[Rfam]
RNA sequence: UUAUCUGUAUUAAUGGGCUCCUUUGAAUGGUAACAUUCAAUAGGCAAAUGGGGAGAAUUGCAAGAACAUCUAUAAAUAAUAACCUCCGAUUUAUAGAUUACUUGCAGCGAAGCUUGAUUCGGUAUUAUAAAUGGAUCAAGAACGUUCAACGACUAAUGAGUGAGUAAUACCAACAAUAAGCUCGACACGAGUACCCCACAACCAAUCAUUAAAAACUAUAGUUAAUGAUGCUUGGUUGAAGACAUAGUCUAAACACCAAAUAUAUAUAAAAUUGGUG
Numbered sequence: 001u002u003a004u005c006u007g008u009a010u011u012a013a014u015g016g017g018c019u020c021c022u023u024u025g026a027a028u029g030g031u032a033a034c035a036u037u038c039a040a041u042a043g044g045c046a047a048a049u050g051g052g053g054a055g056a057a058u059u060g061c062a063a064g065a066a067c068a069u070c071u072a073u074a075a076a077u078a079a080u081a082a083c084c085u086c087c088g089a090u091u092u093a094u095a096g097a098u099u100a101c102u103u104g105c106a107g108c109g110a111a112g113c114u115u116g117a118u119u120c121g122g123u124a125u126u127a128u129a130a131a132u133g134g135a136u137c138a139a140g141a142a143c144g145u146u147c148a149a150c151g152a153c154u155a156a157u158g159a160g161u162g163a164g165u166a167a168u169a170c171c172a173a174c175a176a177u178a179a180g181c182u183c184g185a186c187a188c189g190a191g192u193a194c195c196c197c198a199c200a201a202c203c204a205a206u207c208a209u210u211a212a213a214a215a216c217u218a219u220a221g222u223u224a225a226u227g228a229u230g231c232u233u234g235g236u237u238g239a240a241g242a243c244a245u246a247g248u249c250u251a252a253a254c255a256c257c258a259a260a261u262a263u264a265u266a267u268a269a270a271a272u273u274g275g276u277g
Base pairs, nucleotide, nucleotide: 001016002015003014004013024039025038026037027036028035049198050197051196052195055192059106060105061104062103063102064101069097070096071095072094073093074092075091076090077089107145108144114138120133121132149250151249152248153247154246155245201236202235203234204233205232207230208229209228256275257274258273259272
Background
Group I catalytic intron: a 277-nucleotide RNA from Alternaria sp. MG1. The match comes from Rfam's covariance-model search (71 bits). For this family Rfam cites "Self-splicing of group I introns" (Cech, Annu Rev Biochem, 1990).